[Rfam]
Cyanobacterial functional RNA 10: a 78-nucleotide RNA sequence.

RNA sequence: AUCAGAAACUCCUCACACACUAAUUUCUGAUAAUCAGGCACCCUUAUCUCUAAAUUAGGGUGUUUUUUAUUGACAUAA
Numbered sequence: 001a002u003c004a005g006a007a008a009c010u011c012c013u014c015a016c017a018c019a020c021u022a023a024u025u026u027c028u029g030a031u032a033a034u035c036a037g038g039c040a041c042c043c044u045u046a047u048c049u050c051u052a053a054a055u056u057a058g059g060g061u062g063u064u065u066u067u068u069a070u071u072g073a074c075a076u077a078a
Base pairs, nucleotide, nucleotide: 001031002030003029004028005027006026007025008024036065037064038063039062040061041060042059043058044057

Record summary:
For this family Rfam cites "The challenge of regulation in a minimal photoautotroph: non-coding RNAs in Prochlorococcus" (Steglich et al., PLoS Genet, 2008). The sequence is in the family's curated seed alignment.